[Rfam]
RNA sequence: AGAAGAGGCCUUUCAGGCAUCCUCUCCUAAAAACUUUCGGGCUGGCCUUUGGGCCGGCCCUUUUUUUCGUCCUUU
Numbered sequence: 001a002g003a004a005g006a007g008g009c010c011u012u013u014c015a016g017g018c019a020u021c022c023u024c025u026c027c028u029a030a031a032a033a034c035u036u037u038c039g040g041g042c043u044g045g046c047c048u049u050u051g052g053g054c055c056g057g058c059c060c061u062u063u064u065u066u067u068c069g070u071c072c073u074u075u
Base pairs, nucleotide, nucleotide: 008018009017010016011015039060040059041058042057043056044055045054046053047052
RNA: Makes More Granules Regulator RNA (mmgR)